[Rfam]
RNA sequence: CUUCAAGAAUUGCGGUCGCCAAGCUCCGACUAGGCCGCAUACCAACCCUGCGCUCGUUGGGUGGUUCGGAUGAAGAAGCGGCCCGCAUUCGCCCUGGAGGUAACCGGUGCGGGCAAGAGCUCGCG
Numbered sequence: 001c002u003u004c005a006a007g008a009a010u011u012g013c014g015g016u017c018g019c020c021a022a023g024c025u026c027c028g029a030c031u032a033g034g035c036c037g038c039a040u041a042c043c044a045a046c047c048c049u050g051c052g053c054u055c056g057u058u059g060g061g062u063g064g065u066u067c068g069g070a071u072g073a074a075g076a077a078g079c080g081g082c083c084c085g086c087a088u089u090c091g092c093c094c095u096g097g098a099g100g101u102a103a104c105c106g107g108u109g110c111g112g113g114c115a116a117g118a119g120c121u122c123g124c125g
Stems, first nucleotide, its partner, number of pairs: 001078004009040001011039005017033001022031002041065003046061003050057002081114008
Dot-bracket structure: ((((....(.(((((.(....((......)).).))))))(((..(((.((....)).))).))).........))))..((((((((..................))))))))...........
SAM (S-adenosyl methionine) riboswitch aptamer: a 125-nucleotide RNA sequence from Arthrobacter mobilis.
From the family's description: SAM-IV is a mRNA element that regulates gene expression via direct sensing of S-adenosylmethionine (SAM or AdoMet).
The family's consensus secondary structure is taken from published work.
NCBI's taxonomy places the organism under Bacteria, Actinomycetes, Micrococcales, Micrococcaceae, Arthrobacter.
The literature on the family includes a 2008 paper in RNA by Weinberg et al., "The aptamer core of SAM-IV riboswitches mimics the ligand-binding site of SAM-I riboswitches".